[Rfam]
RNA sequence: UGGAUAGUAUCGUAAGAACUAUACCUAUUCAUAAAAUGUGUAAAAAAAAUAUAGAUCUGCUUUGAGCCUUUGGGACAGAGACAGUUGA
Numbered sequence: 001u002g003g004a005u006a007g008u009a010u011c012g013u014a015a016g017a018a019c020u021a022u023a024c025c026u027a028u029u030c031a032u033a034a035a036a037u038g039u040g041u042a043a044a045a046a047a048a049a050u051a052u053a054g055a056u057c058u059g060c061u062u063u064g065a066g067c068c069u070u071u072g073g074g075a076c077a078g079a080g081a082c083a084g085u086u087g088a
Base pairs, nucleotide, nucleotide: 002025003024004022005021006020007019008018010017011016057084058083059082060080061079062078063077064076067074068073
Shown here is an 88-nucleotide RNA from Marinisporobacter balticus, a member of the family "pan motif". Lineage of the source: Bacteria > Bacillati > Peptostreptococcales > Thermotaleaceae > Marinisporobacter. The match comes from Rfam's covariance-model search (61 bits).